[Rfam]
RNA sequence: GCGGGACUUGCCUACUAUUCUAUGGCGGGGAACUGGGCAAAGGUUGUG
Numbered sequence: 001g002c003g004g005g006a007c008u009u010g011c012c013u014a015c016u017a018u019u020c021u022a023u024g025g026c027g028g029g030g031a032a033c034u035g036g037g038c039a040a041a042g043g044u045u046g047u048g
Stems, first nucleotide, its partner, number of pairs: 007042002010038005018031004